[Rfam]
RNA sequence: UUAAUAUUUAUAGCGCCAGAACUUAGGGCCUACUUAAGUUGACGAGGAUGGGGAGUAUCGAAAAUUCGGCGGAUGCCCCACGGUACACACUACCGUUAAAGUUUAGUAAAACUCAGGAAGUGAUUUCUGCAACAACACUAAACAGGUGUAUUC
Numbered sequence: 001u002u003a004a005u006a007u008u009u010a011u012a013g014c015g016c017c018a019g020a021a022c023u024u025a026g027g028g029c030c031u032a033c034u035u036a037a038g039u040u041g042a043c044g045a046g047g048a049u050g051g052g053g054a055g056u057a058u059c060g061a062a063a064a065u066u067c068g069g070c071g072g073a074u075g076c077c078c079c080a081c082g083g084u085a086c087a088c089a090c091u092a093c094c095g096u097u098a099a100a101g102u103u104u105a106g107u108a109a110a111a112c113u114c115a116g117g118a119a120g121u122g123a124u125u126u127c128u129g130c131a132a133c134a135a136c137a138c139u140a141a142a143c144a145g146g147u148g149u150a151u152u153c
Base pairs, nucleotide, nucleotide: 020040021039022038023037024036025035026034027033049080050079051078052077053076058069059068060067061066081095082094083093084092085091101143102142103141104140105139106138114129115128116127117126118125119124

Description
The family of this 153-nucleotide sequence from Clostridium oryzae is "glmS glucosamine-6-phosphate activated ribozyme aptamer". Rfam classes the family as a riboswitch. Taxonomically the source falls in Clostridium (Bacteria, Bacillati, Bacillota, Eubacteriales). A search with the family's covariance model found it, with a score of 104 bits. About the family: This entry contains a glucosamine-6-phosphate activated ribozyme that is found in the mRNA for GlmS. GlmS is an enzyme that uses fructose-6-phosphate and glutamine to generate glucosamine-6-phosphate.